[Rfam]
RNA sequence: AAAAACGAUAGAGGUGCAAACCAUCAAUAGUAAAAAUCUGGAGAAGAAGGGCUUCAAUGACAGAUUUCGAAAGGGAAGGUUUGCCGAAGUGGAAAAAGGGGCCCCUUCCUAUUUUUCGCUGGUCCUGAGUUUAAGAAAUGCAGGAUUGUCAAAACGGAGAAAUGCCGUUUUGGAGAGCUAUCUCAUGU
Numbered sequence: 001a002a003a004a005a006c007g008a009u010a011g012a013g014g015u016g017c018a019a020a021c022c023a024u025c026a027a028u029a030g031u032a033a034a035a036a037u038c039u040g041g042a043g044a045a046g047a048a049g050g051g052c053u054u055c056a057a058u059g060a061c062a063g064a065u066u067u068c069g070a071a072a073g074g075g076a077a078g079g080u081u082u083g084c085c086g087a088a089g090u091g092g093a094a095a096a097a098g099g100g101g102c103c104c105c106u107u108c109c110u111a112u113u114u115u116u117c118g119c120u121g122g123u124c125c126u127g128a129g130u131u132u133a134a135g136a137a138a139u140g141c142a143g144g145a146u147u148g149u150c151a152a153a154a155c156g157g158a159g160a161a162a163u164g165c166c167g168u169u170u171u172g173g174a175g176a177g178c179u180a181u182c183u184c185a186u187g188u
Stems, first nucleotide, its partner, number of pairs: 007182005016084007024075001034067007088120009098110002121147007129139003149173009
Notes:
The record is a 188-nucleotide RNA sequence from Lederbergia citrea, which matches "Lysine riboswitch aptamer" in Rfam. Gene Ontology term of the family: lysine biosynthetic process. The organism belongs to Lederbergia, within Bacteria.